[Rfam]
RNA: Small nucleolar RNA SNORA13
RNA sequence: UGCCUUUAUGUGUUGCCCUGUCGUUGCUUAAUCGAUGAUUGUGGUGUCAACUAAGGCAUACAAUAAACUUAUGUGGCUGUCAGCUGUGACAUGAGUCUCAAGUGACUCAUUUUACUAGACUAGCUGCAGGAACACAC
Number, nucleotide and partner (000 for none) at each position: 001u000002g057003c056004c055005u054006u053007u000008a000009u000010g000011u049012g048013u000014u046015g045016c044017c043018c041019u000020g039021u038022c037023g036024u035025u034026g000027c000028u000029u000030a000031a000032u000033c000034g025035a024036u023037g022038a021039u020040u000041g018042u000043g017044g016045u015046g014047u000048c012049a011050a000051c000052u000053a006054a005055g004056g003057c002058a000059u000060a000061c000062a000063a000064u000065a000066a000067a000068c000069u000070u130071a000072u128073g127074u000075g000076g124077c123078u122079g121080u000081c000082a000083g000084c000085u119086g000087u117088g116089a000090c000091a111092u000093g000094a000095g106096u105097c000098u000099c000100a000101a000102g000103u000104g000105a096106c095107u000108c000109a000110u000111u091112u000113u000114a000115c000116u088117a087118g000119a085120c000121u079122a078123g077124c076125u000126g000127c073128a072129g000130g070131a000132a000133c000134a000135c000136a000137c000